[Rfam]
RNA sequence: CCCUGUUUCGAAAGUGAUCAUGGCGUGUUUGUCGUCAGGUCAUUGAUAAACAGGAAGAUGAACCUGAGAGCUUUUUCCCGUGUUUAAAGGACUUCCUGUUCCUUCUGAACCCUGGCGCUCUCAGACA
Numbered sequence: 001c002c003c004u005g006u007u008u009c010g011a012a013a014g015u016g017a018u019c020a021u022g023g024c025g026u027g028u029u030u031g032u033c034g035u036c037a038g039g040u041c042a043u044u045g046a047u048a049a050a051c052a053g054g055a056a057g058a059u060g061a062a063c064c065u066g067a068g069a070g071c072u073u074u075u076u077c078c079c080g081u082g083u084u085u086a087a088a089g090g091a092c093u094u095c096c097u098g099u100u101c102c103u104u105c106u107g108a109a110c111c112c113u114g115g116c117g118c119u120c121u122c123a124g125a126c127a
Base pairs, nucleotide, nucleotide: 002054003053004052005051006050007049008048013044014043015042016041017040018039019038022036023035024034025033063124065123066122067121068120069119070118071117082110083109084108085107086106087104088103089102090101091100
The record is a 127-nucleotide RNA from Austrofundulus limnaeus, which matches "Small nucleolar RNA SNORA71" in Rfam. Gene Ontology terms of the family: nucleolus and RNA processing. Pairs were carried over by alignment from the consensus structure, which was predicted with PFOLD. The members of this family belong to the H/ACA class of snoRNAs which bind a number of proteins (including dyskerin, Gar1p and Nop10p) to form snoRNP complexes. The literature on the family includes a 1997 paper in Genes Dev by Ganot et al., "The family of box ACA small nucleolar RNAs is defined by an evolutionarily conserved secondary structure and ubiquitous sequence elements essential for RNA accumulation". A search with the family's covariance model found it, with a score of 107 bits. It is annotated as an H/ACA-box small nucleolar RNA.